[Rfam]
RNA: mir-33 microRNA precursor family
Organism: Branchiostoma floridae
RNA sequence: CUGAGGUGCAUUGUAGUUGCAUUGCAUGUGCACAAAGGAAGUGCAAUGUAACAGCAGUGCAGCUCAG
Numbered sequence: 001c002u003g004a005g006g007u008g009c010a011u012u013g014u015a016g017u018u019g020c021a022u023u024g025c026a027u028g029u030g031c032a033c034a035a036a037g038g039a040a041g042u043g044c045a046a047u048g049u050a051a052c053a054g055c056a057g058u059g060c061a062g063c064u065c066a067g
Base pairs, nucleotide, nucleotide: 001067002066003065004064006063007061008060009059010058011057012056013055014054016052019049021047022046023045024044025043026042027041